[Rfam]
RNA sequence: AGGAGCAGAAGGGCAACUAACCCGAAUGGUCUAACUGUUUGGGAGGAAAAUCUUCCACCUUCAGCAAUGCAGCCAGAAAUGGCAGUCGCGAGAGCGGCUAUCGCAGUCACAGAAACGAACGCCCCUGGGUUAAUGCAAUGACGCCUACAGCAGAGGUCGCACAGGGAUACGGUGAAACGAGCUGCGGAUGCGCGGGUGCAAGCCAAAAGUAUUCCAUUGACAUGCUGAUGAGGAAUGCGGUUCGGCGCUCAGUAGAAUGUUGCCUGCUCCGUCAAAGGAGCCCGGUUGGCUAAUUACAAAUCAUCCGGAUAACAGAAGGAGAUUUACUCUCUGCACCU
Numbered sequence: 001a002g003g004a005g006c007a008g009a010a011g012g013g014c015a016a017c018u019a020a021c022c023c024g025a026a027u028g029g030u031c032u033a034a035c036u037g038u039u040u041g042g043g044a045g046g047a048a049a050a051u052c053u054u055c056c057a058c059c060u061u062c063a064g065c066a067a068u069g070c071a072g073c074c075a076g077a078a079a080u081g082g083c084a085g086u087c088g089c090g091a092g093a094g095c096g097g098c099u100a101u102c103g104c105a106g107u108c109a110c111a112g113a114a115a116c117g118a119a120c121g122c123c124c125c126u127g128g129g130u131u132a133a134u135g136c137a138a139u140g141a142c143g144c145c146u147a148c149a150g151c152a153g154a155g156g157u158c159g160c161a162c163a164g165g166g167a168u169a170c171g172g173u174g175a176a177a178c179g180a181g182c183u184g185c186g187g188a189u190g191c192g193c194g195g196g197u198g199c200a201a202g203c204c205a206a207a208a209g210u211a212u213u214c215c216a217u218u219g220a221c222a223u224g225c226u227g228a229u230g231a232g233g234a235a236u237g238c239g240g241u242u243c244g245g246c247g248c249u250c251a252g253u254a255g256a257a258u259g260u261u262g263c264c265u266g267c268u269c270c271g272u273c274a275a276a277g278g279a280g281c282c283c284g285g286u287u288g289g290c291u292a293a294u295u296a297c298a299a300a301u302c303a304u305c306c307g308g309a310u311a312a313c314a315g316a317a318g319g320a321g322a323u324u325u326a327c328u329c330u331c332u333g334c335a336c337c338u
Stems, first nucleotide, its partner, number of pairs: 001338003005334005010328002012264006021043009048325003053321002055318001056198004061228005068194003072083004085098005100189002105183003120171002123166005129160002143151002202246003211236005
Dot-bracket structure: (((.(((((((((((((...(((((((((.....)))))))))....[[[..[[[((((.[[[[[..(((.((((....)))).(((((....))))).((...(((............((.(((((.((............((.....)).......)).)))))...)).........)))....))..)))))))...(((......(((((........]]]]]...))))).......)))............)))))).....................................................].]].]]].)).))))).)))
RNA: Archaeal RNase P
Organism: Candidatus Undinarchaeum marinum